[Rfam]
RNA: Vault RNA
RNA sequence: GUAGCGAUGUAGCUCAGUGGUUACUUCUAUCGAAUGGUGAUAUCAAAUUCCACCGACCUCCGGGUCAGGAGUUCGAACCACGGGCGCUGUCCGCUGCUUUU
Numbered sequence: 001g002u003a004g005c006g007a008u009g010u011a012g013c014u015c016a017g018u019g020g021u022u023a024c025u026u027c028u029a030u031c032g033a034a035u036g037g038u039g040a041u042a043u044c045a046a047a048u049u050c051c052a053c054c055g056a057c058c059u060c061c062g063g064g065u066c067a068g069g070a071g072u073u074c075g076a077a078c079c080a081c082g083g084g085c086g087c088u089g090u091c092c093g094c095u096g097c098u099u100u101u
Base pairs, nucleotide, nucleotide: 002096003095004094005093006092012085013084014083015082017081018080019079020078025077026076027075029073